[Rfam]
RNA sequence: AGUGUAAAAAGGCAAACUUGAUGAAAAUCAAGGACGCAAAGCUACGGACCUAAGCAGCUUUCACUGUAUGGCCGCCGAGCCGCCAUU
Numbered sequence: 001a002g003u004g005u006a007a008a009a010a011g012g013c014a015a016a017c018u019u020g021a022u023g024a025a026a027a028u029c030a031a032g033g034a035c036g037c038a039a040a041g042c043u044a045c046g047g048a049c050c051u052a053a054g055c056a057g058c059u060u061u062c063a064c065u066g067u068a069u070g071g072c073c074g075c076c077g078a079g080c081c082g083c084c085a086u087u
Stems, first nucleotide, its partner, number of pairs: 012037002017032006041080003045077003049071002055066003

Shown here is an 87-nucleotide RNA sequence from Bacillaceae bacterium SAS-127, a member of the family "c-di-GMP-I riboswitch aptamer".